[Rfam]
RNA sequence: ACGCCCUCGUCUAACACCCUGCAUUGUGCACUGCGCUCACAGUGGGGUGAUUUCAGGGGGCGGAGAUGC
Numbered sequence: 001a002c003g004c005c006c007u008c009g010u011c012u013a014a015c016a017c018c019c020u021g022c023a024u025u026g027u028g029c030a031c032u033g034c035g036c037u038c039a040c041a042g043u044g045g046g047g048u049g050a051u052u053u054c055a056g057g058g059g060g061c062g063g064a065g066a067u068g069c
Base pairs, nucleotide, nucleotide: 002062003061004060005059006058007057008056015049016048017047018046019045020044021043022042
Shown here is a 69-nucleotide sequence from Trypanosoma theileri, a member of the family "Trypanosomatid snoRNA TB10Cs4H2".
Rfam classes the family as an H/ACA-box small nucleolar RNA.
The organism belongs to Trypanosoma, within Eukaryota.
Its family is annotated with RNA processing and nucleolus in the Gene Ontology.